[Rfam]
RNA sequence: CUCCCCGAAAUGUAUUGAGGUACAGCCUCAGGGGAUAUCUGACGGGGGUAGAGCACUGUUGGGGCUAGGGGGCUUACCGGCCUACCGAACCCCGGCAAACUCCGAAUACCGUCAGAAGGACCCUGGGAGUGAGCCGCUGGGUGAUAAAGUCCAGCGACGAGAGGGGAACAACCCAGACCGCCAGCUAAGGUCCCGAAGUACUGGCUAAGUGGUAAAGGAGGUGGCCCUGCUUAGACAACCAGGAUGUUGGCUUAGAAGCAGCCAUCAUUUAAAGAGUGCGUAACAGCUCACUGGUCGAGCGGGGCUGCGCCGAAAAUACCACGGGGCUUAAGCCAGUCGCCGAAGCUGCGGACUCAUGCUGAGAGGCAUGAGUGGUAGGGGAGCACUCUGACUGCGUAGAAGGGUGAUCCGUGAGGGCACCUGGAGUGGUCGGAGGAGAGAAU
Number, nucleotide and partner (000 for none) at each position: 001c383002u382003c381004c380005c379006c378007g000008a000009a000010a000011u024012g023013u022014a021015u020016u000017g000018a000019g000020g015021u014022a013023c012024a011025g000026c129027c127028u126029c125030a124031g123032g122033g121034g000035a000036u120037a000038u116039c115040u114041g113042a112043c111044g110045g109046g000047g000048g000049u000050a000051g103052a101053g100054c000055a000056c000057u097058g096059u095060u000061g093062g092063g091064g090065c000066u000067a000068g086069g085070g083071g082072g081073c080074u079075u000076a000077c000078c000079g074080g073081c072082c071083u070084a000085c069086c068087g000088a000089a000090c064091c063092c062093c061094g000095g059096c058097a057098a000099a000100c053101u052102c000103c051104g000105a000106a000107u000108a000109c045110c044111g043112u042113c041114a040115g039116a038117a000118g000119g000120a036121c033122c032123c031124u030125g029126g028127g027128a000129g026130u000131g000132a000133g158134c000135c156136g155137c154138u153139g152140g151141g150142u149143g000144a000145u000146a000147a000148a000149g142150u141151c140152c139153a138154g137155c136156g135157a000158c133159g000160a000161g000162a000163g174164g173165g172166g000167a000168a000169c000170a000171a000172c165173c164174c163175a000176g000177a000178c351179c350180g349181c348182c000183a347184g346185c345186u000187a000188a000189g341190g340191u339192c000193c000194c000195g000196a000197a000198g338199u000200a337201c336202u335203g334204g333205c332206u000207a000208a000209g000210u000211g000212g000213u000214a000215a000216a000217g311218g310219a000220g000221g308222u307223g306224g305225c304226c303227c302228u301229g300230c299231u000232u000233a000234g000235a000236c000237a000238a295239c294240c293241a292242g291243g000244a268245u267246g266247u000248u000249g263250g262251c261252u000253u000254a000255g000256a000257a000258g000259c000260a000261g251262c250263c249264a000265u000266c246267a245268u244269u273270u000271a000272a000273a269274g289275a000276g000277u000278g287279c286280g000281u000282a000283a000284c000285a000286g279287c278288u000289c274290a000291c242292u241293g240294g239295u238296c000297g000298a000299g230300c229301g228302g227303g226304g225305c224306u223307g222308c221309g000310c218311c217312g000313a000314a000315a000316a000317u000318a000319c000320c000321a000322c000323g000324g000325g000326g000327c000328u000329u000330a000331a000332g205333c204334c203335a202336g201337u200338c198339g191340c190341c189342g000343a000344a000345g185346c184347u183348g181349c180350g179351g178352a373353c372354u371355c370356a369357u368358g367359c366360u000361g000362a000363g000364a000365g000366g359367c358368a357369u356370g355371a354372g353373u352374g000375g000376u000377a000378g006379g005380g004381g003382a002383g001384c438385a000386c435387u434388c433389u432390g431391a430392c429393u428394g427395c426396g000397u000398a000399g000400a000401a000402g422403g421404g420405u419406g418407a000408u417409c416410c415411g000412u000413g000414a000415g410416g409417g408418c406419a405420c404421c403422u402423g000424g000425a000426g395427u394428g393429g392430u391431c390432g389433g388434a387435g386436g000437a000438g384439a000440g000441a000442a000443u000
Shown here is a 443-nucleotide part of an RNA from Thermodesulfatator indicus, a member of the family "Bacterial large subunit ribosomal RNA". Rfam 15.1 lists 51,934 matches to the family in 10,816 species. The sequence is in the family's curated seed alignment.